[Rfam]
RNA sequence: AGUGGUCAGUGAUGCUUUUUUACCUACAUUGUCUGAAUACAGUGAGAGAUAAAACCAACUGAGACCACA
Numbered sequence: 001a002g003u004g005g006u007c008a009g010u011g012a013u014g015c016u017u018u019u020u021u022a023c024c025u026a027c028a029u030u031g032u033c034u035g036a037a038u039a040c041a042g043u044g045a046g047a048g049a050u051a052a053a054a055c056c057a058a059c060u061g062a063g064a065c066c067a068c069a
Stems, first nucleotide, its partner, number of pairs: 002068001004066004

The record is a 69-nucleotide RNA sequence from Branchiostoma belcheri, which matches "Small nucleolar RNA SNORD34" in Rfam. snoRNA U34 is found in intron 5 of the ribosomal protein L13a gene in humans. Lineage of the source: Eukaryota > Eumetazoa > Cephalochordata > Leptocardii > Branchiostoma. For this family Rfam cites "Purified box C/D snoRNPs are able to reproduce site-specific 2'-O-methylation of target RNA in vitro" (Galardi et al., Mol Cell Biol, 2002). Its Rfam clan is "SNORD34 clan".